The record is a 145-nucleotide RNA sequence from Streptomyces griseicoloratus, which matches "Streptomyces-metH RNA" in Rfam. NCBI's taxonomy places the organism under Bacteria, Actinomycetota, Actinomycetes, Streptomycetaceae, Streptomyces. Rfam classes the family as a small RNA.
RNA sequence: CUCGUCCGUCCCCUGGACGCCCUGACCAUCCGCCCCCGGUCCCGGCUACCCUGGCGGCGUGCGUCCUGCCCGGGGACGUUCCGUGCGAGCGUCCCGGGGCAGCGCAAAGCCGACAGCCGUCGCAUCCAAAGGGAGCCCCUUCAUG
Numbered sequence: 001c002u003c004g005u006c007c008g009u010c011c012c013c014u015g016g017a018c019g020c021c022c023u024g025a026c027c028a029u030c031c032g033c034c035c036c037c038g039g040u041c042c043c044g045g046c047u048a049c050c051c052u053g054g055c056g057g058c059g060u061g062c063g064u065c066c067u068g069c070c071c072g073g074g075g076a077c078g079u080u081c082c083g084u085g086c087g088a089g090c091g092u093c094c095c096g097g098g099g100c101a102g103c104g105c106a107a108a109g110c111c112g113a114c115a116g117c118c119g120u121c122g123c124a125u126c127c128a129a130a131g132g133g134a135g136c137c138c139c140u141u142c143a144u145g
Base pairs, nucleotide, nucleotide: 060106061105062104063103067101068100069099070098109123110122112121113120114119
Annotation:
A search with the family's covariance model found it, with a score of 88 bits.